A member of the RNA family "Purine riboswitch aptamer" from Desulfuribacillus alkaliarsenatis, 102 nucleotides long. Lineage of the source: Bacteria > Bacillota > Desulfuribacillia > Desulfuribacillaceae > Desulfuribacillus. Pairs were carried over by alignment from the consensus structure, which is taken from published work. From the family's description: Riboswitches are metabolite binding domains within certain messenger RNAs that serve as precision sensors for their corresponding targets. Gene Ontology term of the family: purine nucleobase biosynthetic process.
[Rfam]
RNA sequence: AACCAAUAUUGAAACAAGGUUCGUAUAAUCCUGAGAAUAUGGCUCGGAAGUAUCUACCAGGCAACCGUAAAUUGCUUGACUACGAAACAACUUACGUAUCAC
Numbered sequence: 001a002a003c004c005a006a007u008a009u010u011g012a013a014a015c016a017a018g019g020u021u022c023g024u025a026u027a028a029u030c031c032u033g034a035g036a037a038u039a040u041g042g043c044u045c046g047g048a049a050g051u052a053u054c055u056a057c058c059a060g061g062c063a064a065c066c067g068u069a070a071a072u073u074g075c076u077u078g079a080c081u082a083c084g085a086a087a088c089a090a091c092u093u094a095c096g097u098a099u100c101a102c
Base pairs, nucleotide, nucleotide: 018088020086021085022084023083024082025081029049031047032046033045034044035043058078059077060076061075062074063073064072